[Rfam]
RNA sequence: GAUUGAAAUGAUGAUGGAAAUUGUUUUCCCUAUUGGUUUGACUGUCGAUAUGAUGGCACAAAUGUAUUAGCUCUAUCUGAUCUUUC
Numbered sequence: 001g002a003u004u005g006a007a008a009u010g011a012u013g014a015u016g017g018a019a020a021u022u023g024u025u026u027u028c029c030c031u032a033u034u035g036g037u038u039u040g041a042c043u044g045u046c047g048a049u050a051u052g053a054u055g056g057c058a059c060a061a062a063u064g065u066a067u068u069a070g071c072u073c074u075a076u077c078u079g080a081u082c083u084u085u086c
Stems, first nucleotide, its partner, number of pairs: 002085001005082001040059001043058004

The record is an 86-nucleotide RNA sequence from Lactuca sativa, which matches "Small nucleolar RNA Z102/R77" in Rfam. The family's RNA type in Rfam is C/D-box small nucleolar RNA. A search with the family's covariance model found it, with a score of 78 bits. The source organism's lineage runs through Eukaryota, Asterales, Asteraceae, Cichorioideae and Lactuca. Clan: SNORD44 clan. Gene Ontology terms of the family: nucleolus and RNA processing. The base pairs follow the family's consensus structure, which was predicted with PFOLD. The family has 9 seed sequences and 1,346 matches in Rfam 15.1.